[Rfam]
RNA sequence: AUUCAACCCCGAUACCGAGCUUGUGAUCCUAAGUCGAGAGAUAUGGUAGCAAAGCCUGCAACUCUGAUUGCACAAGGUAUAAACAGAAAUGAUUAUGCCCCUCCCGUUUAAGAAAGGUAUCGUAAUUUAACUUUG
Numbered sequence: 001a002u003u004c005a006a007c008c009c010c011g012a013u014a015c016c017g018a019g020c021u022u023g024u025g026a027u028c029c030u031a032a033g034u035c036g037a038g039a040g041a042u043a044u045g046g047u048a049g050c051a052a053a054g055c056c057u058g059c060a061a062c063u064c065u066g067a068u069u070g071c072a073c074a075a076g077g078u079a080u081a082a083a084c085a086g087a088a089a090u091g092a093u094u095a096u097g098c099c100c101c102u103c104c105c106g107u108u109u110a111a112g113a114a115a116g117g118u119a120u121c122g123u124a125a126u127u128u129a130a131c132u133u134u135g
Stems, first nucleotide, its partner, number of pairs: 003129001006126001011121006019055004028046002033042003057072005076099007084091002101112002
Rfam assigns this 135-nucleotide RNA from Pasteurellaceae bacterium 15-036681 to the family "Molybdenum/Tungsten riboswitch aptamer (Moco RNA motif)". On this family, see Regulski et al., Mol Microbiol 2008: "in molybdenum cofactor and tungsten cofactor metabolism". Its family is annotated with molybdenum ion binding, tungstate binding and regulation of gene expression in the Gene Ontology.